The family of this 98-nucleotide sequence is "pemK RNA".
It is one of the family's seed sequences.

[Rfam]
RNA sequence: AUAAUGAUACUCCCUUACAGCCACAGUCCGAGCGUUAGAAGCGUCGCAGGCAAUGGGUAGGGCUACAUGAGAACCAUGCAGGGGUGAGAUUCCCGUGA
Dot-bracket structure: ...........(((((((......................................))))))((..(((.....)))..))(((.......))))...